The record is a 133-nucleotide sequence from Mus spicilegus, which matches "Small nucleolar RNA SNORA32" in Rfam.
A search with the family's covariance model found it, with a score of 82 bits.
The family's RNA type in Rfam is H/ACA-box small nucleolar RNA.
The base pairs follow the family's consensus structure, which was predicted with RNAfold.
Nucleotides: 133
Base pairs, nucleotide, nucleotide: 003063005061006060007059010056011055012054024051026049027048079126080125081124082123086119087118088117089116097112098111099110
Number, partner (000 for none) and nucleotide at each position: 001000u002000a003063g004000c005061c006060a007059u008000u009000a010056c011055u012054a013000a014000u015000g016000u017000c018000u019000a020000c021000a022000u023000g024051g025000a026049a027048g028000u029000u030000u031000c032000u033000c034000a035000a036000a037000a038000g039000a040000c041000a042000g043000a044000a045000a046000u047000g048027u049026u050000g051024c052000u053000g054012u055011g056010g057000a058000c059007a060006u061005g062000a063003c064000c065000a066000u067000a068000a069000a070000g071000a072000a073000a074000a075000a076000a077000u078000u079126c080125c081124c082123a083000u084000g085000a086119g087118g088117u089116u090000u091000u092000u093000c094000a095000u096000a097112u098111g099110c100000u101000a102000c103000u104000u105000g106000a107000c108000u109000a110099g111098c112097a113000g114000u115000u116089a117088a118087c119086c120000u121000g122000u123082u124081g125080g126079g127000u128000a129000c130000a131000u132000g133000c

Rfam's curators write: ACA32 is a member of the H/ACA class of snoRNA that guide the sites of modification of uridines to pseudouridines.